[Rfam]
Description: Plant small nucleolar RNA U3: a 213-nucleotide sequence from Setaria italica. The family is grouped with related families in Rfam's "U3 clan". The family has 24 seed sequences and 3,759 matches in Rfam 15.1. Small nucleolar RNAs (snoRNAs) are involved in the processing and modification of rRNA in the nucleolus. A search with the family's covariance model found it, with a score of 110 bits. NCBI's taxonomy places the organism under Eukaryota, Magnoliopsida, Mesangiospermae, Petrosaviidae, Setaria.
RNA sequence: ACAUCCUUGCUUGAACAGGAAUUGUUAUAUAGGAUUGUACCACUGCAUCCUUUACCACAAAGGUGGCAAGCACUUCAGUGUGGUUGAGGAGCCACGACCUCUAAGCCAGAGCGUGACAGACAGGAUGGUUUGGUUGUUGCCAUCCAAUGGCAGUAGAGGACCGUCCCUGCCAGGUUUAAGCCUGGUCAGGAUGGCUCAGACGUCUGAUAGACC
Dot-bracket structure: (((.(((......(((((...)))))....))).).)).....(((..(((((.....)))))..))).........((.((...............(.(((.(((((..(((......((.(...((..((((....)))).)).....).)).......))).(..(((((((....)))))))..)..))))).))).).....)).)).